[Rfam]
RNA sequence: CUUUGCUUGUCGGAGUGCCGUGCAUCGGAAGUUGCCUGGCUGAGAUCGCAACACUGCGAAAUCCGCUGAACCUGAUCGGGACCAUCCCCGCGUAGGAAACCAAGUCGCCCCAUGCG
Numbered sequence: 001c002u003u004u005g006c007u008u009g010u011c012g013g014a015g016u017g018c019c020g021u022g023c024a025u026c027g028g029a030a031g032u033u034g035c036c037u038g039g040c041u042g043a044g045a046u047c048g049c050a051a052c053a054c055u056g057c058g059a060a061a062u063c064c065g066c067u068g069a070a071c072c073u074g075a076u077c078g079g080g081a082c083c084a085u086c087c088c089c090g091c092g093u094a095g096g097a098a099a100c101c102a103a104g105u106c107g108c109c110c111c112a113u114g115c116g
Stems, first nucleotide, its partner, number of pairs: 006104004011065004016059001017040004047058004071096004077090004
Dot-bracket structure: .....((((.((((.(((((................))))......((((....)))))..)))).....((((..((((......))))..))))....))))............
RNA: TPP riboswitch aptamer (THI element)
Organism: Thiomonas sp. X19